Description: Rfam assigns this 90-nucleotide RNA sequence from Punica granatum to the family "Small nucleolar RNA snoR26". By type it is a C/D-box small nucleolar RNA.

[Rfam]
RNA sequence: UGAGCAUCUGUGAUGAGAACUUAAAAUCGUCAUCCUUGCACUUUGAUUGCCAGUGAAGAAAUUGGGGAAAUUUGUUUCUCUGAGAUGCCU
Numbered sequence: 001u002g003a004g005c006a007u008c009u010g011u012g013a014u015g016a017g018a019a020c021u022u023a024a025a026a027u028c029g030u031c032a033u034c035c036u037u038g039c040a041c042u043u044u045g046a047u048u049g050c051c052a053g054u055g056a057a058g059a060a061a062u063u064g065g066g067g068a069a070a071u072u073u074g075u076u077u078c079u080c081u082g083a084g085a086u087g088c089c090u
Stems, first nucleotide, its partner, number of pairs: 002090001004088005